Rfam assigns this 82-nucleotide RNA from Zopfia rhizophila to the family "tRNA". Rfam classes the family as a transfer RNA. It scores 56 bits against the family's covariance model.
[Rfam]
RNA sequence: GGUGAGAUGGCCGAGCGGUCUAUGGCGCUAGCUUCAGGUGCUAGUAUCGAAAGAUGCGUGGGUUCGAAUCCCACUCUCAUCA
Numbered sequence: 001g002g003u004g005a006g007a008u009g010g011c012c013g014a015g016c017g018g019u020c021u022a023u024g025g026c027g028c029u030a031g032c033u034u035c036a037g038g039u040g041c042u043a044g045u046a047u048c049g050a051a052a053g054a055u056g057c058g059u060g061g062g063u064u065c066g067a068a069u070c071c072c073a074c075u076c077u078c079a080u081c082a
Base pairs, nucleotide, nucleotide: 001081002080003079004078005077006076007075010026011025012024013023028044029043030042031041032040058074059073060072061071062070

Record summary:
Rfam links the family to the GO term triplet codon-amino acid adaptor activity. The family's consensus secondary structure is taken from published work. The family has 954 seed sequences and 5,335,975 matches in Rfam 15.1. Rfam's curators write: Transfer RNA (tRNA) molecules are approximately 80 nucleotides in length. Their secondary structure includes four short double-helical elements and three loops (D, anti-codon, and T loops). Further hydrogen bonds mediate the characteristic L-shaped molecular structure. tRNAs have two regions of fundamental functional importance: the anti-codon, which is responsible for specific mRNA codon recognition, and the 3' end, to which the tRNAs corresponding amino acid is attached (by aminoacyl-tRNA synthetases). tRNAs cope with the degeneracy of the genetic code in two manners: having more than one tRNA (with a specific anti-codon) for a particular amino acid; and 'wobble' base-pairing, i.e. permitting non-standard base-pairing at the 3rd anti-codon position.